[Rfam]
RNA sequence: CCAAUCGUAGCCGAUGUUCCACAGGAGGGGGCCGAGAACCGACCCCUGCGGAACACCGCACGACAUG
Numbered sequence: 001c002c003a004a005u006c007g008u009a010g011c012c013g014a015u016g017u018u019c020c021a022c023a024g025g026a027g028g029g030g031g032c033c034g035a036g037a038a039c040c041g042a043c044c045c046c047u048g049c050g051g052a053a054c055a056c057c058g059c060a061c062g063a064c065a066u067g
Base pairs, nucleotide, nucleotide: 005063006062007061008060010059011058013056015055016054017053018052019051020050024049026047027046029045030044031043033041034040
A member of the RNA family "mir-3389 microRNA precursor family" from Heliothis virescens, 67 nucleotides long. The family's consensus secondary structure was predicted with RNAalifold. The match comes from Rfam's covariance-model search (84 bits). Gene Ontology terms of the family: RISC complex and miRNA-mediated post-transcriptional gene silencing.